A member of the RNA family "Pseudomonas sRNA P27" from Pseudomonas saudiphocaensis, 199 nucleotides long. It scores 138 bits against the family's covariance model.

RNA sequence: CGGGUUUACUCCUGGAUGUUACCGGUUCAUCCGGUCGAAACCGGACGGGUUUUGGUGUCUGAUUCGGUACGAAUCGGGAGCACCUCUGCGUAGGCUUGAAGAAGCGAACUUCAACGGUUUAAGACUUGCGUCGCCUACGGUCUUGGAUAGCCCCCGCCAGGCAGGGACCCCAAUAAGUACCGCUCCGACUUGCGGAGCG
Dot-bracket structure: .((((((...((((........(....(.((((((....)))))).).)....((((((((((((.....)))))))..)))))...(((..((((....................((((((((((............))))))))))))))..)))))))...))))))..........((((((.......))))))
Numbered sequence: 001c002g003g004g005u006u007u008a009c010u011c012c013u014g015g016a017u018g019u020u021a022c023c024g025g026u027u028c029a030u031c032c033g034g035u036c037g038a039a040a041c042c043g044g045a046c047g048g049g050u051u052u053u054g055g056u057g058u059c060u061g062a063u064u065c066g067g068u069a070c071g072a073a074u075c076g077g078g079a080g081c082a083c084c085u086c087u088g089c090g091u092a093g094g095c096u097u098g099a100a101g102a103a104g105c106g107a108a109c110u111u112c113a114a115c116g117g118u119u120u121a122a123g124a125c126u127u128g129c130g131u132c133g134c135c136u137a138c139g140g141u142c143u144u145g146g147a148u149a150g151c152c153c154c155c156g157c158c159a160g161g162c163a164g165g166g167a168c169c170c171c172a173a174u175a176a177g178u179a180c181c182g183c184u185c186c187g188a189c190u191u192g193c194g195g196a197g198c199g
Stems, first nucleotide, its partner, number of pairs: 002170006011161004023049001028047001030045006054084005059077007088157003093152004117148010181199006
By type it is a small RNA. The base pairs follow the family's consensus structure, which was predicted with WAR. On this family, see Livny et al., Nucleic Acids Res 2006: "Identification of 17 Pseudomonas aeruginosa sRNAs and prediction of sRNA-encoding genes in 10 diverse pathogens using the bioinformatic tool sRNAPredict2".